[Rfam]
RNA sequence: UGGCUCCAGAAAUCAAGGUUGGGUGAGACCUCGUGAACAGACUGGAAGGCGACCCAUACUUGGUUUCAGGAGCUU
Numbered sequence: 001u002g003g004c005u006c007c008a009g010a011a012a013u014c015a016a017g018g019u020u021g022g023g024u025g026a027g028a029c030c031u032c033g034u035g036a037a038c039a040g041a042c043u044g045g046a047a048g049g050c051g052a053c054c055c056a057u058a059c060u061u062g063g064u065u066u067c068a069g070g071a072g073c074u075u
Stems, first nucleotide, its partner, number of pairs: 002074006009067006016060002021055004029049003